This 283-nucleotide RNA from Petasospora fabianii belongs to the Rfam family "Nuclear RNase P".
The base pairs follow the family's consensus structure, which is taken from published work.
The match comes from Rfam's covariance-model search (104 bits).
The organism belongs to Petasospora, within Eukaryota.
Its family is annotated with ribonuclease P complex, tRNA processing and ribonuclease P activity in the Gene Ontology.

RNA sequence: UUCUCUCCCGAGUCUGUAUGGACCUGCCCACAUAAGGAGCACGCUUGUCGUGCUCACAAAUACGCAGGUGGGAAAUUCGGUGGUUCGCACUGACCGCCUACAAAGUUUUCUCUUGAGAGAUCCUGGCGAGGAAUCGCUGGGUGCGGCCAUAAGAAAUCAGCCCGUGCAAACGGGCAUGGGAGGCUGCACGGUCAGUUGGUCCUUGGAAAGAAGGGCUAUUGAGUGCAAUAUACAGACUACGGCUUCGGCCGUGGAACCCGAUACCGAUUACUUCUGGUGAGAA
Numbered sequence: 001u002u003c004u005c006u007c008c009c010g011a012g013u014c015u016g017u018a019u020g021g022a023c024c025u026g027c028c029c030a031c032a033u034a035a036g037g038a039g040c041a042c043g044c045u046u047g048u049c050g051u052g053c054u055c056a057c058a059a060a061u062a063c064g065c066a067g068g069u070g071g072g073a074a075a076u077u078c079g080g081u082g083g084u085u086c087g088c089a090c091u092g093a094c095c096g097c098c099u100a101c102a103a104a105g106u107u108u109u110c111u112c113u114u115g116a117g118a119g120a121u122c123c124u125g126g127c128g129a130g131g132a133a134u135c136g137c138u139g140g141g142u143g144c145g146g147c148c149a150u151a152a153g154a155a156a157u158c159a160g161c162c163c164g165u166g167c168a169a170a171c172g173g174g175c176a177u178g179g180g181a182g183g184c185u186g187c188a189c190g191g192u193c194a195g196u197u198g199g200u201c202c203u204u205g206g207a208a209a210g211a212a213g214g215g216c217u218a219u220u221g222a223g224u225g226c227a228a229u230a231u232a233c234a235g236a237c238u239a240c241g242g243c244u245u246c247g248g249c250c251g252u253g254g255a256a257c258c259c260g261a262u263a264c265c266g267a268u269u270a271c272u273u274c275u276g277g278u279g280a281g282a283a
Base pairs, nucleotide, nucleotide: 001283002282003281004280008277009276010275013236014235015234016233017232018231019230022069023068024067025066026065037055038054039053040052041051042050078266079265080264081263082262092193093192094191095190109120110119111118112117122140125138126137127136128135129134141189142188143187144186145185146184147183160175161174162173237254238253239252240251241250242249243248